[Rfam]
RNA sequence: UCUUCUGUGAGAGAGAAUCUGAAGGAACCCGGUCGUAAACACUCGCACUGACGAACAGAAACUUCAUAUGAAAGCUCGGUGGAAUGGCUAAACCUACUAUACAAGGCAAAGUCCAAUACUGUACGGAAUUUCGUUGAGUAAAUAAGGCAGUGACAUGAGUCGAAAGCGAGCUGG
Number, nucleotide and partner (000 for none) at each position: 001u016002c015003u014004u013005c000006u011007g000008u000009g000010a000011g006012a000013g004014a003015g002016a001017a000018u000019c000020u000021g000022a000023a000024g000025g000026a000027a000028c174029c173030c000031g171032g000033u000034c000035g167036u166037a000038a000039a000040c000041a160042c159043u158044c157045g156046c152047a151048c150049u149050g148051a000052c000053g000054a000055a000056c000057a000058g000059a000060a000061a000062c147063u146064u145065c000066a143067u142068a000069u000070g000071a000072a000073a000074g139075c138076u137077c000078g135079g134080u133081g132082g131083a130084a129085u000086g114087g113088c000089u111090a000091a000092a000093c106094c105095u104096a000097c000098u000099a000100u000101a000102c000103a000104a095105g094106g093107c000108a000109a000110a000111g089112u000113c087114c086115a000116a000117u000118a000119c000120u000121g000122u000123a000124c000125g000126g000127a000128a000129u084130u083131u082132c081133g080134u079135u078136g000137a076138g075139u074140a000141a000142a067143u066144a000145a064146g063147g062148c050149a049150g048151u047152g046153a000154c000155a000156u045157g044158a043159g042160u041161c000162g000163a000164a000165a000166g036167c035168g000169a000170g000171c031172u000173g029174g028
The family of this 174-nucleotide RNA from Halolactibacillus alkaliphilus is "Group II catalytic intron D1-D4-3".
Rfam describes the family as follows. Group II introns are found in rRNA, tRNA and mRNA of organelles in fungi, plants and protists, and also in mRNA in bacteria.
For this family Rfam cites "The ins and outs of group II introns" (Bonen and Vogel, Trends Genet, 2001).
A search with the family's covariance model found it, with a score of 108 bits.